[Rfam]
RNA sequence: AGGUCACGACAGGGGAGCGCCGCCGGCGCUGAGAGUGCGGGAACCGCCCGCAGACCCUUUGCGAACCUGCUCCGGUUAGCACCGGCGAAGGAAGUCGAGCAUGUCAGUCU
Number, nucleotide and partner (000 for none) at each position: 001a000002g000003g000004u000005c000006a000007c097008g096009a095010c094011a058012g057013g056014g055015g000016a000017g029018c028019g027020c026021c025022g000023c000024c000025g021026g020027c019028g018029c017030u000031g000032a000033g000034a000035g000036u052037g051038c050039g049040g048041g000042a000043a000044c000045c000046g000047c000048c040049c039050g038051c037052a036053g000054a000055c014056c013057c012058u011059u000060u000061g000062c000063g000064a000065a000066c091067c090068u089069g000070c000071u000072c085073c084074g083075g082076u000077u000078a000079g000080c000081a000082c075083c074084g073085g072086c000087g000088a000089a068090g067091g066092a000093a000094g010095u009096c008097g007098a000099g000100c000101a000102u000103g000104u000105c000106a000107g000108u000109c000110u000
About this RNA: The record is a 110-nucleotide RNA from Ornithinimicrobium avium, which matches "TPP riboswitch aptamer (THI element)" in Rfam. Taxonomically the source falls in Ornithinimicrobium (Bacteria, Bacillati, Actinomycetota, Ornithinimicrobiaceae). The match comes from Rfam's covariance-model search (61 bits).